[Rfam]
This 76-nucleotide RNA sequence from Austrofundulus limnaeus belongs to the Rfam family "U1A polyadenylation inhibition element (PIE)". The organism belongs to Austrofundulus, within Eukaryota. Gene Ontology term of the family: regulation of mRNA polyadenylation. From the family's description: This family represents the U1A polyadenylation inhibition element (PIE). PIE is a regulatory RNA which is responsible for the regulation of the length of the polyA tail of the U1A pre-mRNA. The PIE is located in the U1A mRNA 3' UTR. PIE adopts a U-shaped structure, with binding sites for a single U1A protein at each bend and when complexed with the two proteins it blocks activity of poly(A) polymerase (PAP), and inhibits its activity. On this family, see Clerte and Hall, Biochemistry 2004: "Global and Local Dynamics of the U1A Polyadenylation Inhibition Element (PIE) RNA and PIE RNA-U1A Complexes". Rfam classes the family as a cis-regulatory element. The match comes from Rfam's covariance-model search (75 bits).
RNA sequence: UCAAAAAGCAUUGCACCCAGAGUCUGGGCAUCCAGACAUUGUACCUGGAGCUUUUCUUUGUUUAUUAAAUGGAAUA
Numbered sequence: 001u002c003a004a005a006a007a008g009c010a011u012u013g014c015a016c017c018c019a020g021a022g023u024c025u026g027g028g029c030a031u032c033c034a035g036a037c038a039u040u041g042u043a044c045c046u047g048g049a050g051c052u053u054u055u056c057u058u059u060g061u062u063u064a065u066u067a068a069a070u071g072g073a074a075u076a
Stems, first nucleotide, its partner, number of pairs: 005054005017048004022037005